[Rfam]
RNA sequence: CCGCCCGUCGCUCCUACCGAUUGAGUGGUCCGGUGAGGCCUUGGGAGAGCUAGAUGAACUGUUUUACUCAGAUCUUUUGGCUUCAACUUGGUCAAACCUUAUCACUUAGAGGAAGGAGAAGUCGUAACAAGGUUUCCGUAGGUGAACCUGCGGAAGGAUCAUUC
Numbered sequence: 001c002c003g004c005c006c007g008u009c010g011c012u013c014c015u016a017c018c019g020a021u022u023g024a025g026u027g028g029u030c031c032g033g034u035g036a037g038g039c040c041u042u043g044g045g046a047g048a049g050c051u052a053g054a055u056g057a058a059c060u061g062u063u064u065u066a067c068u069c070a071g072a073u074c075u076u077u078u079g080g081c082u083u084c085a086a087c088u089u090g091g092u093c094a095a096a097c098c099u100u101a102u103c104a105c106u107u108a109g110a111g112g113a114a115g116g117a118g119a120a121g122u123c124g125u126a127a128c129a130a131g132g133u134u135u136c137c138g139u140a141g142g143u144g145a146a147c148c149u150g151c152g153g154a155a156g157g158a159u160c161a162u163u164c
Stems, first nucleotide, its partner, number of pairs: 001131001003128001006124002009121001011118005017112002021108001023107007032098003037093004043087001047083008056074002059071003133156010